[Rfam]
RNA sequence: AGCUUUGCAUAGUGGCAGUAUUGUAGUCAAUGAGGUUUAUCUGUGGCAUGAUUAUUGCUAAUUGAAAAUUUUUCAAUACCUCACCAUGACUACUUGAAAUAUAGUUGGCACUGGAAAAUUUUGCCAGUCUCUACAGAGC
Numbered sequence: 001a002g003c004u005u006u007g008c009a010u011a012g013u014g015g016c017a018g019u020a021u022u023g024u025a026g027u028c029a030a031u032g033a034g035g036u037u038u039a040u041c042u043g044u045g046g047c048a049u050g051a052u053u054a055u056u057g058c059u060a061a062u063u064g065a066a067a068a069u070u071u072u073u074c075a076a077u078a079c080c081u082c083a084c085c086a087u088g089a090c091u092a093c094u095u096g097a098a099a100u101a102u103a104g105u106u107g108g109c110a111c112u113g114g115a116a117a118a119u120u121u122u123g124c125c126a127g128u129c130u131c132u133a134c135a136g137a138g139c
Stems, first nucleotide, its partner, number of pairs: 020052005026047003034042002084114002087110002090107001092105003129138003

The family of this 139-nucleotide RNA sequence from Cavia porcellus is "U4 spliceosomal RNA". Lineage of the source: Eukaryota > Tetrapoda > Mammalia > Hystricomorpha > Cavia.